[Rfam]
RNA sequence: CAAGUAAGCCAGAUAAUCGCGGGCAGCAGGGAUGCUGCGUGAGGAAAGUCGGAGCUCCACAGAGCAGGGUGCUAGGUAACGCCUAGUGAGAGUGAUCUUAAGGAUAGUGCAACAGAAAUAAACCGCCUCUUAAUGCGCGCAAUGAGGUAAGGAUGGAAAGGCGAGGUAAGAGCUCACCAGCGGCCAGGUGACUGGUCGGCUAUGUAAACCCCACCUGGAGCAAGACCAAAAUAGGGCUAAAGAGUGUUGCUCGCACUCUCCGGUUGGUAGGUCGCUUGAGCUUACUGGUGACAGUAAGCCUAGAAAGAUGAUUAUCUAAUACAGAACUCCGCUUAUAGACUUGCUUGAUUU
Dot-bracket structure: ((((((((.(((((((((.((.((((((....)))))).))....[[[.[[[[[((((...[[[[.((((((((((.....)))))(((((....)))).)((...(((((...........(((((..(((.((....)).))))))..)).......((.(((.......))).)).((((((((....))))))).)..)))..)))))))))))))...((((.......((......(((((.]]]])))))..))........))))......((((((((....))))))))..........)))))))..........]]]]]]]].).).))))))))....